[Rfam]
The record is an 81-nucleotide RNA from Myotis brandtii, which matches "mir-574 microRNA precursor family" in Rfam. The literature on the family includes a 2007 paper in Cancer Res by Lui et al., "Patterns of known and novel small RNAs in human cervical cancer". The match comes from Rfam's covariance-model search (81 bits). NCBI's taxonomy places the organism under Eukaryota, Metazoa, Chiroptera, Yangochiroptera, Myotis. The family's consensus secondary structure was predicted with RNAalifold. Its family is annotated with miRNA-mediated post-transcriptional gene silencing and RISC complex in the Gene Ontology. Clan: mir-574 microRNA precursor clan. The family has 6 seed sequences and 4,084 matches in Rfam 15.1.
RNA sequence: AGGCCUGAAGAGAGAAGCAGGGACUGAUCCAUAGUCUCUGUGGCAGCUUUUGACCAGCAUUUGCCUCUCUCUUUCUCUCCA
Numbered sequence: 001a002g003g004c005c006u007g008a009a010g011a012g013a014g015a016a017g018c019a020g021g022g023a024c025u026g027a028u029c030c031a032u033a034g035u036c037u038c039u040g041u042g043g044c045a046g047c048u049u050u051u052g053a054c055c056a057g058c059a060u061u062u063g064c065c066u067c068u069c070u071c072u073u074u075c076u077c078u079c080c081a
Base pairs, nucleotide, nucleotide: 008073009072010071011070012069013068014067015066017064018063019062020061024057025056026055028053029052033048034047035046